[Rfam]
Background
The record is a 61-nucleotide sequence from Acidipropionibacterium virtanenii, which matches "Actino-pnp RNA" in Rfam. The base pairs follow the family's consensus structure, which is taken from published work. It is annotated as a cis-regulatory element.
RNA sequence: CUCGGUCCUCGGUAGUGGCCACCGGGUGCACAAUCCCCGAUGGCUUCGAUCGAAGACCGGC
Numbered sequence: 001c002u003c004g005g006u007c008c009u010c011g012g013u014a015g016u017g018g019c020c021a022c023c024g025g026g027u028g029c030a031c032a033a034u035c036c037c038c039g040a041u042g043g044c045u046u047c048g049a050u051c052g053a054a055g056a057c058c059g060g061c
Stems, first nucleotide, its partner, number of pairs: 002060006009053005017045005023039004028034001